[Rfam]
RNA sequence: UGGACAUUUGAGGUUGAAGUAGUGCUGAAGUUUUUGCUAUGUAAGGGUCUGUGGUGUUUUUAAAUAACUAUUUCUUCUUCAUGCC
Numbered sequence: 001u002g003g004a005c006a007u008u009u010g011a012g013g014u015u016g017a018a019g020u021a022g023u024g025c026u027g028a029a030g031u032u033u034u035u036g037c038u039a040u041g042u043a044a045g046g047g048u049c050u051g052u053g054g055u056g057u058u059u060u061u062a063a064a065u066a067a068c069u070a071u072u073u074c075u076u077c078u079u080c081a082u083g084c085c
Stems, first nucleotide, its partner, number of pairs: 010077003014063004023054001029048001031047007
RNA: Stem loopII regulatory element in POLB